The record is a 117-nucleotide sequence from Entomomonas asaccharolytica, which matches "Pseudomon-1/ErsA RNA" in Rfam. By type it is a small RNA. The match comes from Rfam's covariance-model search (64 bits). Functions to regulate the AlgC enzyme. Based on this information, the new name ErsA for the RNA was adopted. The family's consensus secondary structure is taken from published work. Its family is annotated with sRNA-mediated gene silencing, response to antibiotic and mRNA binding in the Gene Ontology.
[Rfam]
RNA sequence: AUACUCCUUGAUGUUAAGUAUUGUUAGUUUUUGUUGGGUUUCCCCUAACCCGACAGCUUGAAUCCCAGAUUUCUCCCCCUCCCUAAAUUUGAAAUCUGGGAUUUUUUUUGUUUAAAA
Numbered sequence: 001a002u003a004c005u006c007c008u009u010g011a012u013g014u015u016a017a018g019u020a021u022u023g024u025u026a027g028u029u030u031u032u033g034u035u036g037g038g039u040u041u042c043c044c045c046u047a048a049c050c051c052g053a054c055a056g057c058u059u060g061a062a063u064c065c066c067a068g069a070u071u072u073c074u075c076c077c078c079c080u081c082c083c084u085a086a087a088u089u090u091g092a093a094a095u096c097u098g099g100g101a102u103u104u105u106u107u108u109u110g111u112u113u114a115a116a117a
Stems, first nucleotide, its partner, number of pairs: 031056008060105003063101011